[Rfam]
RNA sequence: CUUUGUUGAUGAUUUAUCUAGUGCCUUUUGUUGGGAACAAUAAAAUUGAGUGAUGGCACUGAUGUAAUAAGGAG
Numbered sequence: 001c002u003u004u005g006u007u008g009a010u011g012a013u014u015u016a017u018c019u020a021g022u023g024c025c026u027u028u029u030g031u032u033g034g035g036a037a038c039a040a041u042a043a044a045a046u047u048g049a050g051u052g053a054u055g056g057c058a059c060u061g062a063u064g065u066a067a068u069a070a071g072g073a074g
Base pairs, nucleotide, nucleotide: 001074002073003072004071
Rfam assigns this 74-nucleotide RNA from Geotrypetes seraphini to the family "Small nucleolar RNA SNORD66". Rfam links the family to the GO terms nucleolus and RNA processing. Pairs were carried over by alignment from the consensus structure, which was predicted with RNAalifold. A reference for the family is Huttenhofer et al. (2001), "RNomics: an experimental approach that identifies 201 candidates for novel, small, non-messenger RNAs in mouse", EMBO J. About the family: snoRNA HBII-142 is part of the C/D family of snoRNAs. It is the human orthologue of the mouse MBII-142 snoRNA and is predicted to guide 2'O-ribose methylation of small 18S rRNA at residue C1272.